[Rfam]
Nucleotides: 164
Base pairs, nucleotide, nucleotide: 007080008079009078020067021066022065023064026061027060028059029058095159096158097157098156108143109142110141111140113138114137115136117135118134119133
Number, partner (000 for none) and nucleotide at each position: 001000a002000c003000u004000c005000c006000u007080u008079u009078g010000c011000c012000a013000a014000c015000a016000c017000u018000c019000u020067g021066g022065c023064c024000c025000u026061u027060a028059c029058c030000c031000c032000u033000u034000u035000c036000c037000u038000u039000c040000u041000g042000g043000a044000u045000u046000g047000g048000a049000c050000c051000a052000u053000a054000c055000c056000a057000u058029g059028g060027u061026a062000u063000a064023g065022g066021c067020c068000u069000a070000u071000u072000u073000u074000g075000g076000u077000g078009c079008a080007a081000a082000g083000g084000a085000g086000a087000g088000g089000a090000a091000a092000u093000c094000a095159g096158a097157c098156c099000u100000a101000c102000u103000a104000c105000u106000c107000a108143c109142c110141g111140c112000g113138g114137c115136a116000u117135c118134c119133u120000g121000u122000c123000c124000u125000u126000c127000g128000g129000g130000c131000g132000u133119g134118g135117g136115u137114g138113c139000a140111g141110u142109g143108g144000u145000c146000c147000a148000u149000c150000u151000u152000u153000u154000a155000c156098g157097g158096u159095c160000u161000a162000c163000a164000u